RNA sequence: GCGUCGACCGGGUCGGUCGCCCGGGUCACGACCAGGUAGUCGCGCAGCACGAUCGCGUGACGGUUGUC
Numbered sequence: 001g002c003g004u005c006g007a008c009c010g011g012g013u014c015g016g017u018c019g020c021c022c023g024g025g026u027c028a029c030g031a032c033c034a035g036g037u038a039g040u041c042g043c044g045c046a047g048c049a050c051g052a053u054c055g056c057g058u059g060a061c062g063g064u065u066g067u068c
Base pairs, nucleotide, nucleotide: 004063005062006061008059012029013028015027016026017025018024035056038053040052041051042050044048

Record summary
A member of the RNA family "ASdes TB sRNA" from Gordonia malaquae, 68 nucleotides long. The match comes from Rfam's covariance-model search (62 bits). The family's consensus secondary structure is taken from published work. The family's RNA type in Rfam is small RNA. NCBI's taxonomy places the organism under Bacteria, Actinomycetota, Mycobacteriales, Gordoniaceae, Gordonia malaquae.